The family of this 72-nucleotide sequence from Gouania willdenowi is "mir-2985 microRNA precursor family". The family's consensus secondary structure was predicted with RNAalifold. Lineage of the source: Eukaryota > Chordata > Osteoglossocephalai > Euacanthomorphacea > Gouania. On this family, see Gunaratne et al., BMC Genomics 2011: "Song exposure regulates known and novel microRNAs in the zebra finch auditory forebrain". Rfam's curators write: RNAs can be post-transcriptional modified, in micro RNAs (miRNA) editing of pre-mRNA is a common process. It scores 87 bits against the family's covariance model.
Nucleotides: 072
Base pairs, nucleotide, nucleotide: 003070004069005068006067007066009064010063011062012061013060014059015058016057017056019054020053021052023050024049025048026047027046028045029044030043031042032041033040
Number, partner (000 for none) and nucleotide at each position: 001000c002000g003070c004069a005068u006067u007066a008000a009064g010063g011062u012061g013060g014059g015058u016057g017056g018000a019054a020053u021052a022000a023050u024049a025048u026047a027046a028045c029044a030043a031042u032041a033040u034000c035000c036000c037000c038000c039000c040033a041032u042031g043030u044029u045028g046027u047026u048025a049024u050023a051000g052021u053020a054019u055000u056017c057016c058015a059014c060013c061012u062011a063010c064009c065000c066007u067006g068005a069004u070003g071000u072000c